A member of the RNA family "Plastid-rpl16 group II-D1 intron" from Nyssa sinensis, 47 nucleotides long.

RNA sequence: AUGCGUUUCGAGCCGAUAAAGACUAAGGAGAUUUGCUCAAGAACAAA
Dot-bracket structure: ......((.((((.(((.............))).)))).))......

Taxonomically the source falls in Nyssa (Eukaryota, Mesangiospermae, eudicotyledons, Nyssaceae). Rfam links the family to the GO term Group II intron splicing. On this family, see Richter et al., Plant Commun 2023: "Retrograde signaling in plants: A critical review focusing on the GUN pathway and beyond". Rfam describes the family as follows. Plastid-rpl16 is a non-coding RNA (ncRNA) recognised in plastids. It was recognised in and intronic region of a ribosome rpl16 gene.